[Rfam]
RNA sequence: AAGCUAGAAAUACCCAAUAUCUUGUUCCAGCAAGAUAUUGGGUAUUUCUUUUUUUU
Number, nucleotide and partner (000 for none) at each position: 001a052002a051003g050004c000005u000006a049007g048008a047009a046010a045011u044012a043013c042014c041015c000016a000017a000018u000019a036020u035021c034022u033023u032024g031025u000026u000027c000028c000029a000030g000031c024032a023033a022034g021035a020036u019037a000038u000039u000040g000041g014042g013043u012044a011045u010046u009047u008048c007049u006050u003051u002052u001053u000054u000055u000056u000

Shown here is a 56-nucleotide RNA sequence from Zizania palustris, a member of the family "Plastid-psbA-3 3UTR RNA". The organism belongs to Zizania, within Eukaryota. Plastid psbA-3 is a non-coding RNA (ncRNA) present in plastids. It was identified in inverted repeat sequences in the 3 prime untranslate region (3UTR) of photosystem II quinone-binding protein (psbA). The literature on the family includes a 2023 paper in Plant Commun by Richter et al., "Retrograde signaling in plants: A critical review focusing on the GUN pathway and beyond".